[Rfam]
Record summary: Rfam assigns this 46-nucleotide RNA from Pirellulimonas nuda to the family "Acido-Lenti-1 RNA".
RNA sequence: CCAGGGGCUUGCGCCCCUGGCUAGACGCCGUCGGCCCUCCGGGCCU
Numbered sequence: 001c002c003a004g005g006g007g008c009u010u011g012c013g014c015c016c017c018u019g020g021c022u023a024g025a026c027g028c029c030g031u032c033g034g035c036c037c038u039c040c041g042g043g044c045c046u
Stems, first nucleotide, its partner, number of pairs: 001020008033045005
A search with the family's covariance model found it, with a score of 37 bits. Rfam classes the family as a small RNA.